[Rfam]
RNA sequence: ACAGAAUUCCCCGAGAAGGAACUCCGGGAAAAGAGAAUAAAAUAAUUAAGAUACAUUACUAUGAGUAUAGGAAUGAACGAAUAUGUUUACAAU
Numbered sequence: 001a002c003a004g005a006a007u008u009c010c011c012c013g014a015g016a017a018g019g020a021a022c023u024c025c026g027g028g029a030a031a032a033g034a035g036a037a038u039a040a041a042a043u044a045a046u047u048a049a050g051a052u053a054c055a056u057u058a059c060u061a062u063g064a065g066u067a068u069a070g071g072a073a074u075g076a077a078c079g080a081a082u083a084u085g086u087u088u089a090c091a092a093u
Base pairs, nucleotide, nucleotide: 007030008029009028010027011026013024014023015022075088076087077086078085
RNA: Plastid-rpl20 3UTR RNA
Organism: Musa balbisiana